[Rfam]
RNA sequence: GCCAGAGUCAAUCUAGCAGAAGAGGCACACAAUAGCCAAGGGUACUUAGUUACCGCGAAACCUUUGCCUCGGGAAGGUCUGAGAUAAAGUCGUGUCCCUUCUUCUCGAAGGGCAAACGCUCUAGAAGGGCGAUCCUAUAAAUGGAUGCGAGAAAACCAGAAACAGCGGGACCCCCACCCUAUUCUGUCGCCGUGGAUGGCCAGUUUUCUUCUUCUCUCACUCAUGUCCUCCUCUCCUCUCUUCUAUCCCUUCUAUCCCGUCUUGUCACGUUUAUAGCGUUUGGCUCAUUUUCACGUUCCCUCUUAGCCCUUUUCCACUGAUUCUCCUCGCAAGUACAAGAGGGGGGGGAAACUGGCGGGAGGUUAUGUGGUGUGGUCGAUGGAAAUUCUCGCGACUCGCAAUUUCAGUACAAUCUGCAAGCCGUCCCUCCGUGUUCGUAUCCGUCCUCGGAUGGACGUCGUUCUAAGGUGGGAUGGAACUCAAUUCAGACUAAUCUGACUCUGGC
Numbered sequence: 001g002c003c004a005g006a007g008u009c010a011a012u013c014u015a016g017c018a019g020a021a022g023a024g025g026c027a028c029a030c031a032a033u034a035g036c037c038a039a040g041g042g043u044a045c046u047u048a049g050u051u052a053c054c055g056c057g058a059a060a061c062c063u064u065u066g067c068c069u070c071g072g073g074a075a076g077g078u079c080u081g082a083g084a085u086a087a088a089g090u091c092g093u094g095u096c097c098c099u100u101c102u103u104c105u106c107g108a109a110g111g112g113c114a115a116a117c118g119c120u121c122u123a124g125a126a127g128g129g130c131g132a133u134c135c136u137a138u139a140a141a142u143g144g145a146u147g148c149g150a151g152a153a154a155a156c157c158a159g160a161a162a163c164a165g166c167g168g169g170a171c172c173c174c175c176a177c178c179c180u181a182u183u184c185u186g187u188c189g190c191c192g193u194g195g196a197u198g199g200c201c202a203g204u205u206u207u208c209u210u211c212u213u214c215u216c217u218c219a220c221u222c223a224u225g226u227c228c229u230c231c232u233c234u235c236c237u238c239u240c241u242u243c244u245a246u247c248c249c250u251u252c253u254a255u256c257c258c259g260u261c262u263u264g265u266c267a268c269g270u271u272u273a274u275a276g277c278g279u280u281u282g283g284c285u286c287a288u289u290u291u292c293a294c295g296u297u298c299c300c301u302c303u304u305a306g307c308c309c310u311u312u313u314c315c316a317c318u319g320a321u322u323c324u325c326c327u328c329g330c331a332a333g334u335a336c337a338a339g340a341g342g343g344g345g346g347g348g349a350a351a352c353u354g355g356c357g358g359g360a361g362g363u364u365a366u367g368u369g370g371u372g373u374g375g376u377c378g379a380u381g382g383a384a385a386u387u388c389u390c391g392c393g394a395c396u397c398g399c400a401a402u403u404u405c406a407g408u409a410c411a412a413u414c415u416g417c418a419a420g421c422c423g424u425c426c427c428u429c430c431g432u433g434u435u436c437g438u439a440u441c442c443g444u445c446c447u448c449g450g451a452u453g454g455a456c457g458u459c460g461u462u463c464u465a466a467g468g469u470g471g472g473a474u475g476g477a478a479c480u481c482a483a484u485u486c487a488g489a490c491u492a493a494u495c496u497g498a499c500u501c502u503g504g505c
Stems, first nucleotide, its partner, number of pairs: 001505004008498003013420002016417004022070005041054004045049001079488005088396004117131005132146004147392007169377004421476007

The record is a 505-nucleotide RNA from Melipona bicolor, which matches "Nuclear RNase P" in Rfam. Its family is annotated with tRNA processing, ribonuclease P complex and ribonuclease P activity in the Gene Ontology. The match comes from Rfam's covariance-model search (114 bits). NCBI's taxonomy places the organism under Eukaryota, Apocrita, Apidae, Meliponini, Melipona.